The record is a 231-nucleotide RNA from Saccharopolyspora sp. ASAGF58, which matches "Actinobacteria sRNA Ms_IGR-5" in Rfam. By type it is a small RNA. NCBI's taxonomy places the organism under Bacteria, Bacillati, Pseudonocardiales, Pseudonocardiaceae, Saccharopolyspora.
[Rfam]
RNA sequence: ACACAGGAAGGGAGGUGGUCCAACGUUGAAUACCAACAGGACUUGUGAGGUGGCUGUCCGCUAGGACCGCCCACGGCACUCCAGCCGACCCGUGUCGUCUGAUCCUGCGGGAUUCGGCGCGGGCAUGCGGUCGGCGAAUACCAGGCAGCUACCCGACCCCGGGGCCCCGAACUGCGUCCGGUUCGGCCUGUACGGACAAACCGGCAGGAAUCGGCUCCGGGGUUGCUGCUU
Numbered sequence: 001a002c003a004c005a006g007g008a009a010g011g012g013a014g015g016u017g018g019u020c021c022a023a024c025g026u027u028g029a030a031u032a033c034c035a036a037c038a039g040g041a042c043u044u045g046u047g048a049g050g051u052g053g054c055u056g057u058c059c060g061c062u063a064g065g066a067c068c069g070c071c072c073a074c075g076g077c078a079c080u081c082c083a084g085c086c087g088a089c090c091c092g093u094g095u096c097g098u099c100u101g102a103u104c105c106u107g108c109g110g111g112a113u114u115c116g117g118c119g120c121g122g123g124c125a126u127g128c129g130g131u132c133g134g135c136g137a138a139u140a141c142c143a144g145g146c147a148g149c150u151a152c153c154c155g156a157c158c159c160c161g162g163g164g165c166c167c168c169g170a171a172c173u174g175c176g177u178c179c180g181g182u183u184c185g186g187c188c189u190g191u192a193c194g195g196a197c198a199a200a201c202c203g204g205c206a207g208g209a210a211u212c213g214g215c216u217c218c219g220g221g222g223u224u225g226c227u228g229c230u231u
Base pairs, nucleotide, nucleotide: 014058015057016056017055018054019053059136060135061134062133064132065131067130068129069128070127154225155224156223157222158221159220160219161218162217163216164215165214166213167186168185169184170183171182172181